Annotation:
A member of the RNA family "L31-Firmicutes ribosomal protein leader" from Cohnella thermotolerans, 34 nucleotides long. For this family Rfam cites "Discovery of 20 novel ribosomal leader candidates in bacteria and archaea" (Eckert and Weinberg, BMC Microbiol, 2020). Rfam's curators put it in the seed alignment. By type it is a cis-regulatory leader. Lineage of the source: Bacteria > Bacillati > Bacilli > Cohnella > Cohnella thermotolerans.

RNA sequence: CUCUGGAUCCGCAUGUGGUUCAGGGCAGAAAGAG
Numbered sequence: 001c002u003c004u005g006g007a008u009c010c011g012c013a014u015g016u017g018g019u020u021c022a023g024g025g026c027a028g029a030a031a032g033a034g
Stems, first nucleotide, its partner, number of pairs: 001025009